Description: Small nucleolar RNA SNORA11: a 129-nucleotide RNA from Propithecus coquereli. For this family Rfam cites "A novel experimental approach for systematic identification of box H/ACA snoRNAs from eukaryotes" (Gu et al., Nucleic Acids Res, 2005). Rfam describes the family as follows. U107 (SNORA11) is a member of the H/ACA class of snoRNAs that guide the sites of modification of uridines to pseudouridines. This snoRNA was identified by RT-PCR from blood cells and its expression confirmed by Northern blot analysis. There is no predicted target for this guide snRNA. Rfam classes the family as an H/ACA-box small nucleolar RNA.
RNA sequence: UGGGUGUGCUCAGAGCAGGGGGCCUGAAGAAUGGCUCCUCUGUUUACAACACACCCAACAGGAAUCUGGUGUCAUUGUGAUGAGGGGCAGAAAACUUGUGCUCUCCCUAUGAACAAAUGCCCUAUAUAU
Numbered sequence: 001u002g003g004g005u006g007u008g009c010u011c012a013g014a015g016c017a018g019g020g021g022g023c024c025u026g027a028a029g030a031a032u033g034g035c036u037c038c039u040c041u042g043u044u045u046a047c048a049a050c051a052c053a054c055c056c057a058a059c060a061g062g063a064a065u066c067u068g069g070u071g072u073c074a075u076u077g078u079g080a081u082g083a084g085g086g087g088c089a090g091a092a093a094a095c096u097u098g099u100g101c102u103c104u105c106c107c108u109a110u111g112a113a114c115a116a117a118u119g120c121c122c123u124a125u126a127u128a129u
Stems, first nucleotide, its partner, number of pairs: 002056007013045009022035003069122001071120002076115003081111002084104003088100002091097002